[Rfam]
Small nucleolar RNA SNORA79: a 143-nucleotide sequence from Sinocyclocheilus grahami. Pairs were carried over by alignment from the consensus structure, which was predicted with RNAalifold. A search with the family's covariance model found it, with a score of 57 bits. Its family is annotated with nucleolus and RNA processing in the Gene Ontology.

RNA sequence: UGACGACAAUCCACCUGCUACAUUGAGCUUUUGUUUGUCAGGCUUUUAGGUCGUCAUAGAGAAAAGUGAGUCUGGUUCUGCCAGUGUGUAAUAUGCAGGUGGUCUGCUAAUGUUCACCCUGGACACUAAUGGACUCCACAGAU
Numbered sequence: 001u002g003a004c005g006a007c008a009a010u011c012c013a014c015c016u017g018c019u020a021c022a023u024u025g026a027g028c029u030u031u032u033g034u035u036u037g038u039c040a041g042g043c044u045u046u047u048a049g050g051u052c053g054u055c056a057u058a059g060a061g062a063a064a065a066g067u068g069a070g071u072c073u074g075g076u077u078c079u080g081c082c083a084g085u086g087u088g089u090a091a092u093a094u095g096c097a098g099g100u101g102g103u104c105u106g107c108u109a110a111u112g113u114u115c116a117c118c119c120u121g122g123a124c125a126c127u128a129a130u131g132g133a134c135u136c137c138a139c140a141g142a143u
Stems, first nucleotide, its partner, number of pairs: 001056007014042004019037001020034003069135006081122004086117003090113001094109001095107003